RNA sequence: ACUAGCUGCUAGGCCCAGCCCCGUGAAAGCCGGGGCCUCCCUUCUGGGAGCGGCGCUCAAAGCUAAAAU
Number, nucleotide and partner (000 for none) at each position: 001a000002c000003u000004a064005g063006c062007u061008g000009c000010u000011a000012g000013g054014c053015c052016c029017a000018g000019c035020c034021c033022c032023g000024u000025g000026a000027a000028a000029g016030c000031c000032g022033g021034g020035g019036c000037c050038u049039c048040c047041c046042u000043u000044c000045u000046g041047g040048g039049a038050g037051c000052g015053g014054c013055g000056c000057u000058c000059a000060a000061a007062g006063c005064u004065a000066a000067a000068a000069u000

Twister_sister_ribozyme: a 69-nucleotide RNA sequence from Sporomusa acidovorans.
Pairs were carried over by alignment from the consensus structure, which is taken from published work.
On this family, see Weinberg et al., Nat Chem Biol 2015: "New classes of self-cleaving ribozymes revealed by comparative genomics analysis".
A search with the family's covariance model found it, with a score of 57 bits.